[Rfam]
RNA: Small nucleolar RNA Z157/R69/R10
RNA sequence: AUUAAUGUGGUGAUGAGGCUUAUGUGGACUAGAGUUUCUGAAUCUUGGGGCUUAAUCUCCCUGGGUUCUGUAGACAACCCCUUGGCUGUCUGAGCAUUUUU
Numbered sequence: 001a002u003u004a005a006u007g008u009g010g011u012g013a014u015g016a017g018g019c020u021u022a023u024g025u026g027g028a029c030u031a032g033a034g035u036u037u038c039u040g041a042a043u044c045u046u047g048g049g050g051c052u053u054a055a056u057c058u059c060c061c062u063g064g065g066u067u068c069u070g071u072a073g074a075c076a077a078c079c080c081c082u083u084g085g086c087u088g089u090c091u092g093a094g095c096a097u098u099u100u101u
Stems, first nucleotide, its partner, number of pairs: 001101001004098005035073002038070001042066004047061004